[Rfam]
RNA sequence: AAACAGCCCCCUAUGUUUUAAUUCUUUGGCAGUUUUGAACCUCCAAAACAAAACAAAAAUAAAAAAUUAACACGUGGCACCUCACUUAGGGUGCCACGUCAGCGUUGACCGAGUCAAGAAUGGACUGGGGGUCCAAAACUGCCAAAAAAUCAAAACAUAGGGAGCUGUUU
Numbered sequence: 001a002a003a004c005a006g007c008c009c010c011c012u013a014u015g016u017u018u019u020a021a022u023u024c025u026u027u028g029g030c031a032g033u034u035u036u037g038a039a040c041c042u043c044c045a046a047a048a049c050a051a052a053a054c055a056a057a058a059a060u061a062a063a064a065a066a067u068u069a070a071c072a073c074g075u076g077g078c079a080c081c082u083c084a085c086u087u088a089g090g091g092u093g094c095c096a097c098g099u100c101a102g103c104g105u106u107g108a109c110c111g112a113g114u115c116a117a118g119a120a121u122g123g124a125c126u127g128g129g130g131g132u133c134c135a136a137a138a139c140u141g142c143c144a145a146a147a148a149a150u151c152a153a154a155a156c157a158u159a160g161g162g163a164g165c166u167g168u169u170u
Base pairs, nucleotide, nucleotide: 001170002169004167005166006165007164012159013158014157015156016155017154018153019152021150022149023148025146026145027144028143029142030141031140032139033138034137035136036135037134039132040131041130042129043128044127045126072099073098075096076095077094078093079092080091081090

The family of this 170-nucleotide RNA from Medicago truncatula is "MIR2619 microRNA precursor family".
The family's consensus secondary structure was predicted with RNAalifold.
NCBI's taxonomy places the organism under Eukaryota, Tracheophyta, Euphyllophyta, Papilionoideae, Medicago.